[Rfam]
RNA sequence: AUUCAGUGAAGUGAGCUUCCUUCAGCCCACUCAUGGGUGGUGUUAGGGUUCAAACUAGCUGCCGACUCAUUCAUCCAAAUACCAAGUACUGAAACACACAAGGAGUUGUACGGCUUGGUAGAUGAGUGAAUGACGCGGGAGAUGAGUUAGAUCCUAUGCUGCUCUUGCUUGGACUGAAGGGAGCUCCCUUCUAUCUAUUC
Numbered sequence: 001a002u003u004c005a006g007u008g009a010a011g012u013g014a015g016c017u018u019c020c021u022u023c024a025g026c027c028c029a030c031u032c033a034u035g036g037g038u039g040g041u042g043u044u045a046g047g048g049u050u051c052a053a054a055c056u057a058g059c060u061g062c063c064g065a066c067u068c069a070u071u072c073a074u075c076c077a078a079a080u081a082c083c084a085a086g087u088a089c090u091g092a093a094a095c096a097c098a099c100a101a102g103g104a105g106u107u108g109u110a111c112g113g114c115u116u117g118g119u120a121g122a123u124g125a126g127u128g129a130a131u132g133a134c135g136c137g138g139g140a141g142a143u144g145a146g147u148u149a150g151a152u153c154c155u156a157u158g159c160u161g162c163u164c165u166u167g168c169u170u171g172g173a174c175u176g177a178a179g180g181g182a183g184c185u186c187c188c189u190u191c192u193a194u195c196u197a198u199u200c
Stems, first nucleotide, its partner, number of pairs: 013186008023176003027172003036163001059141002062138003068132004076124001
RNA: MIR159 microRNA precursor family